This 76-nucleotide RNA sequence from Lentibacter algarum belongs to the Rfam family "Singlet oxygen resistance RNA X". A reference for the family is Peng et al. (2016), "Regulation of a polyamine transporter by the conserved 3' UTR-derived sRNA SorX confers resistance to singlet oxygen and organic hydroperoxides in Rhodobacter sphaeroides", RNA Biol.
[Rfam]
RNA sequence: AGUCCUGACAGCGAUGAUUUAUCGCUUUCAUACCUCCCUGUUGGACUUCGGCCGAGCUUUGCGCUCGGCCUUUUUU
Dot-bracket structure: ......((.((((.........)))).))....................((((((((.....))))))))......
Numbered sequence: 001a002g003u004c005c006u007g008a009c010a011g012c013g014a015u016g017a018u019u020u021a022u023c024g025c026u027u028u029c030a031u032a033c034c035u036c037c038c039u040g041u042u043g044g045a046c047u048u049c050g051g052c053c054g055a056g057c058u059u060u061g062c063g064c065u066c067g068g069c070c071u072u073u074u075u076u
Stems, first nucleotide, its partner, number of pairs: 007029002010026004050070008

The base pairs follow the family's consensus structure. Rfam's curators write: SorX (RSs2461)like SorY is a singlet oxygen induced sRNA that counteracts oxidative stress by targeting mRNA for a transporter in Rhodobacter.